[Rfam]
RNA sequence: AGUGCGGGCCGGGCCCCUCUGGCGCUUCUGCGGAAGCGUGAUGUCGGACCGCAUCG
Dot-bracket structure: .....((.((((.........(((((((....)))))))....)))).))......